[Rfam]
RNA sequence: AUAAUGAUACUUCUCUACGGAGUCGGCGGAGAACCCGGCGAAGGUCUAAUACCUAUGA
Numbered sequence: 001a002u003a004a005u006g007a008u009a010c011u012u013c014u015c016u017a018c019g020g021a022g023u024c025g026g027c028g029g030a031g032a033a034c035c036c037g038g039c040g041a042a043g044g045u046c047u048a049a050u051a052c053c054u055a056u057g058a
Base pairs, nucleotide, nucleotide: 012055013022014021015020023041024040025039027037028036029035042054043053044052
RNA: pemK RNA